Shown here is a 71-nucleotide sequence from Polypterus senegalus, a member of the family "miR-430 microRNA precursor family". For this family Rfam cites "MicroRNAs regulate brain morphogenesis in zebrafish" (Giraldez et al., Science, 2005). Taxonomically the source falls in Polypterus (Eukaryota, Metazoa, Teleostomi, Polypteriformes). The family's consensus secondary structure was predicted with RNAalifold. The family has 32 seed sequences and 24,817 matches in Rfam 15.1.
[Rfam]
RNA sequence: CAGAUUUCUUCAACAGUAGCACUCCACUUUUCCAUUGUCUAUAGUAAGUGCUUCCUGUUGGGGUAGUUUCU
Numbered sequence: 001c002a003g004a005u006u007u008c009u010u011c012a013a014c015a016g017u018a019g020c021a022c023u024c025c026a027c028u029u030u031u032c033c034a035u036u037g038u039c040u041a042u043a044g045u046a047a048g049u050g051c052u053u054c055c056u057g058u059u060g061g062g063g064u065a066g067u068u069u070c071u
Base pairs, nucleotide, nucleotide: 004067005066006065008063009062010061011060013058014057015056016055018052019051020050021049022048023047026045027044028043